[Rfam]
RNA sequence: AGCUCUGCGCAGUGGCAGUAUCAUAGCCAAUGAGGUCAAACCGAGGUGUGAUUAUUGCUAUAUUGCUAAUUGUGAUGAAGCUGAAGCUUGAUGAAAGCGGAGGGGCUGUGUUCCCAUUAGGGAGGAGCUGCCGGCUUAUUUUUUGUCAGGGGCUUCGCACAUGCUC
Number, nucleotide and partner (000 for none) at each position: 001a000002g000003c000004u000005c000006u000007g000008c000009g000010c000011a000012g000013u000014g000015g000016c000017a000018g000019u000020a052021u051022c050023a049024u048025a000026g047027c046028c045029a000030a000031u000032g000033a000034g042035g041036u040037c000038a000039a000040a036041c035042c034043g000044a000045g028046g027047u026048g024049u023050g022051a021052u020053u000054a000055u000056u000057g000058c000059u000060a000061u000062a000063u000064u000065g000066c000067u000068a000069a000070u000071u000072g000073u000074g000075a000076u000077g000078a137079a136080g135081c133082u000083g131084a000085a129086g128087c127088u126089u000090g000091a000092u000093g000094a000095a000096a000097g000098c000099g000100g000101a000102g000103g000104g000105g000106c000107u000108g000109u000110g000111u000112u000113c000114c000115c000116a000117u000118u000119a000120g000121g000122g000123a000124g000125g000126a088127g087128c086129u085130g000131c083132c000133g081134g000135c080136u079137u078138a000139u000140u000141u000142u000143u000144u000145g000146u000147c000148a000149g000150g166151g165152g164153c163154u000155u000156c000157g000158c000159a000160c000161a000162u000163g153164c152165u151166c150
Rfam assigns this 166-nucleotide sequence from Xenopus tropicalis to the family "U4 spliceosomal RNA". Rfam's curators write: U4 small nuclear RNA (U4 snRNA) is a component of the major U2-dependent spliceosome. Gene Ontology terms of the family: U4 snRNP and spliceosomal tri-snRNP complex assembly. Pairs were carried over by alignment from the consensus structure, which is taken from published work. Its Rfam clan is "U4 clan". Rfam classes the family as a spliceosomal small nuclear RNA. A search with the family's covariance model found it, with a score of 54 bits.